RNA sequence: AAAACAUUCGGACCGUCGCUGCGUCGGUCUACCGGGCAAUAACAUUCGCUCGGUGGAAGAUCUUCCCCUUGUAGU
Numbered sequence: 001a002a003a004a005c006a007u008u009c010g011g012a013c014c015g016u017c018g019c020u021g022c023g024u025c026g027g028u029c030u031a032c033c034g035g036g037c038a039a040u041a042a043c044a045u046u047c048g049c050u051c052g053g054u055g056g057a058a059g060a061u062c063u064u065c066c067c068c069u070u071g072u073a074g075u
Stems, first nucleotide, its partner, number of pairs: 004072003010066003015061003028057010
This 75-nucleotide sequence from Bombyx mori belongs to the Rfam family "mir-2774 microRNA precursor family". The match comes from Rfam's covariance-model search (64 bits). The source organism's lineage runs through Eukaryota, Panarthropoda, Mandibulata, Allotriocarida and Bombyx. For this family Rfam cites "MicroRNAs of Bombyx mori identified by Solexa sequencing" (Liu et al., BMC Genomics, 2010). The base pairs follow the family's consensus structure, which was predicted with RNAalifold.